[Rfam]
RNA sequence: CUAGCAAAUUUGCCAAAACCGUAUGGUGCGGGGGACUUGAUUCGCUGCGCGGACAGGCCGGAAUCUCAUUCCGUCAGCCGCGCUUGGGGUGAAGCGCUUCGAAGCAAGCGCAGGGUUGUACUCCCAGCCCGAACCCGACAGCUAACCUCGCCGGCAAUCACCAGGAGGGUA
Numbered sequence: 001c002u003a004g005c006a007a008a009u010u011u012g013c014c015a016a017a018a019c020c021g022u023a024u025g026g027u028g029c030g031g032g033g034g035a036c037u038u039g040a041u042u043c044g045c046u047g048c049g050c051g052g053a054c055a056g057g058c059c060g061g062a063a064u065c066u067c068a069u070u071c072c073g074u075c076a077g078c079c080g081c082g083c084u085u086g087g088g089g090u091g092a093a094g095c096g097c098u099u100c101g102a103a104g105c106a107a108g109c110g111c112a113g114g115g116u117u118g119u120a121c122u123c124c125c126a127g128c129c130c131g132a133a134c135c136c137g138a139c140a141g142c143u144a145a146c147c148u149c150g151c152c153g154g155c156a157a158u159c160a161c162c163a164g165g166a167g168g169g170u171a
Base pairs, nucleotide, nucleotide: 011156012155013154014153018027019026020025028151029150030149031148032147033146038086039085087136088135089134095110096109097108098107113130114129115128116127
A member of the RNA family "c-di-AMP riboswitch aptamer (ydaO/yuaA leader)" from Cohnella lubricantis, 171 nucleotides long.